[Rfam]
The record is a 272-nucleotide part of an RNA from Brevundimonas sp. Leaf363, which matches "Bacterial large subunit ribosomal RNA" in Rfam. Taxonomically the source falls in Brevundimonas (Bacteria, Pseudomonadota, Alphaproteobacteria, Caulobacterales). The base pairs follow the family's consensus structure, which is taken from published work.
RNA sequence: GAUAAACAGUGUGAGAAACACUGUCGCCGAAAGACCAAGGGUUCCUGCGUAAAGCUAAUCUGCGCAGGGUUAGUCGGCCCCUAAGGCGAGGCUGAAAAGCGUAGUCGAUGGGAAGCAGGUAAAUAUUCCUGCACCAGCUGGAAGUGACGGAUGGCAUAAGUUGUCAGGACUUAUUGGAUUGUUCUGGCAGUGGCGUUGUCCCUGGAAAUAACUCCAGCAGAGACCGUACCCGAAACCGACACAGGUGGUCAGGUAGAGUAUACCAAGGCGCU
Numbered sequence: 001g002a003u004a005a006a007c008a009g010u011g012u013g014a015g016a017a018a019c020a021c022u023g024u025c026g027c028c029g030a031a032a033g034a035c036c037a038a039g040g041g042u043u044c045c046u047g048c049g050u051a052a053a054g055c056u057a058a059u060c061u062g063c064g065c066a067g068g069g070u071u072a073g074u075c076g077g078c079c080c081c082u083a084a085g086g087c088g089a090g091g092c093u094g095a096a097a098a099g100c101g102u103a104g105u106c107g108a109u110g111g112g113a114a115g116c117a118g119g120u121a122a123a124u125a126u127u128c129c130u131g132c133a134c135c136a137g138c139u140g141g142a143a144g145u146g147a148c149g150g151a152u153g154g155c156a157u158a159a160g161u162u163g164u165c166a167g168g169a170c171u172u173a174u175u176g177g178a179u180u181g182u183u184c185u186g187g188c189a190g191u192g193g194c195g196u197u198g199u200c201c202c203u204g205g206a207a208a209u210a211a212c213u214c215c216a217g218c219a220g221a222g223a224c225c226g227u228a229c230c231c232g233a234a235a236c237c238g239a240c241a242c243a244g245g246u247g248g249u250c251a252g253g254u255a256g257a258g259u260a261u262a263c264c265a266a267g268g269c270g271c272u
Stems, first nucleotide, its partner, number of pairs: 006024006025270004033250004039230002044068006053061002075226003080111002085106003089102001091100003115132005135222001137218002140215003145210001149201004160191011236245002252264004